[Rfam]
Rfam assigns this 111-nucleotide RNA from Mycobacterium cookii to the family "TPP riboswitch aptamer (THI element)".

RNA sequence: AAAAACAACCACGGGAGCGCACGCCCGGUGCGCUGAGAGGACGGCUCGGGGCCGUCGACCGUACGAACCUGACCGGGUAAUGCCGACGUAGGGAGAUGACGUAAUGACCGA
Numbered sequence: 001a002a003a004a005a006c007a008a009c010c011a012c013g014g015g016a017g018c019g020c021a022c023g024c025c026c027g028g029u030g031c032g033c034u035g036a037g038a039g040g041a042c043g044g045c046u047c048g049g050g051g052c053c054g055u056c057g058a059c060c061g062u063a064c065g066a067a068c069c070u071g072a073c074c075g076g077g078u079a080a081u082g083c084c085g086a087c088g089u090a091g092g093g094a095g096a097u098g099a100c101g102u103a104a105u106g107a108c109c110g111a
Stems, first nucleotide, its partner, number of pairs: 008097001010095001011062004017033005040056007068092004074085003
It scores 57 bits against the family's covariance model.